[Rfam]
Nucleotides: 424
Base pairs, nucleotide, nucleotide: 001420003418004417005416006415007414008413009412010411011409012369013368014367015366016365017364018363020055021054022053023052024051025050060407061406062405064404065403066402067401068400069236070235071234072233078303081232082231083230084229085228086100087099088098089097090096101116103114104113105112106111117227118226122224123223124222125221137169138168139165140164141163142162145159146158147157148156149155177195178194179193180192181191182190197218198216199215200214201212202211203210204209240326241325242324243323251316252315253314254313255312298310299309300308301307302306333352334351335350336349337348338347339346340345
Number, partner (000 for none) and nucleotide at each position: 001420g002000c003418g004417g005416c006415a007414g008413a009412c010411c011409g012369c013368u014367c015366u016365a017364u018363c019000g020055c021054u022053c023052c024051g025050g026000a027000c028000g029000g030000c031000u032000u033000u034000u035000u036000c037000u038000u039000c040000g041000g042000a043000a044000g045000a046000a047000g048000u049000c050025c051024c052023g053022g054021g055020g056000a057000g058000g059000a060407a061406a062405g063000u064404c065403c066402g067401g068400g069236c070235a071234a072233c073000a074000a075000a076000g077000g078303g079000c080000g081232c082231c083230a084229u085228g086100c087099u088098u089097c090096c091000u092000a093000a094000c095000g096090g097089g098088a099087a100086g101116u102000c103114a104113g105112g106111u107000g108000a109000a110000a111106g112105c113104c114103u115000g116101a117227a118226g119000c120000g121000a122224c123223g124222u125221a126000a127000c128000a129000g130000a131000a132000a133000a134000u135000a136000a137169c138168c139165g140164u141163u142162c143000a144000a145159g146158g147157g148156a149155u150000g151000g152000u153000u154000c155149a156148u157147u158146c159145c160000g161000c162142g163141a164140a165139u166000a167000a168138g169137g170000g171000u172000g173000a174000a175000a176000a177195g178194g179193u180192g181191c182190g183000g184000u185000a186000a187000g188000a189000g190182c191181g192180c193179a194178c195177c196000g197218g198216c199215g200214g201212a202211u203210u204209g205000g206000u207000g208000a209204c210203a211202a212201u213000u214200c215199c216198g217000g218197c219000c220000g221125u222124a223123c224122g225000a226118c227117u228085c229084a230083u231082g232081g233072g234071u235070u236069g237000c238000a239000a240326g241325a242324c243323c244000a245000a246000a247000u248000a249000u250000a251316u252315c253314c254313c255312g256000g257000u258000c259000c260000u261000u262000c263000g264000g265000g266000g267000c268000a269000a270000a271000g272000c273000g274000g275000c276000c277000c278000g279000c280000u281000u282000u283000g284000c285000u286000g287000c288000c289000c290000g291000g292000g293000g294000c295000c296000a297000a298310u299309g300308g301307c302306c303078c304000a305000a306302g307301g308300c309299u310298g311000c312255c313254g314253g315252g316251a317000g318000g319000g320000g321000u322000a323243g324242g325241u326240u327000g328000c329000u330000g331000g332000a333352u334351c335350c336349c337348g338347u339346c340345a341000g342000c343000a344000a345340u346339g347338g348337c349336g350335g351334g352333a353000c354000a355000a356000g357000a358000u359000a360000a361000a362000u363018g364017a365016u366015a367014g368013g369012g370000g371000u372000c373000c374000g375000g376000u377000g378000a379000u380000u381000u382000u383000u384000a385000a386000u387000c388000c389000c390000g391000g392000a393000a394000a395000c396000a397000g398000a399000a400068c401067c402066c403065g404064g405062c406061u407060u408000a409011c410000a411010g412009g413008u414007c415006u416005g417004c418003c419000a420001u421000u422000u423000u424000u
Shown here is a 424-nucleotide RNA sequence from Bacteroidales bacterium 6E, a member of the family "Bacterial RNase P class A".
Rfam links the family to the GO terms dimeric ribonuclease P complex, ribonuclease P activity and tRNA processing.